Overview
A member of the RNA family "mir-290 microRNA precursor family" from Suricata suricatta, 66 nucleotides long. The literature on the family includes a 2003 paper in Dev Cell by Houbaviy et al., "Embryonic stem cell-specific MicroRNAs".
RNA sequence: AGGAUACACAAAAUGGGGGCACUUCCCGUUCUCUGCCUGGAAAGUGCUCCCAUUUUUGUGUGUCCU
Numbered sequence: 001a002g003g004a005u006a007c008a009c010a011a012a013a014u015g016g017g018g019g020c021a022c023u024u025c026c027c028g029u030u031c032u033c034u035g036c037c038u039g040g041a042a043a044g045u046g047c048u049c050c051c052a053u054u055u056u057u058g059u060g061u062g063u064c065c066u
Stems, first nucleotide, its partner, number of pairs: 004063009013053011024041003
Description: The base pairs follow the family's consensus structure, which was predicted with RNAalifold.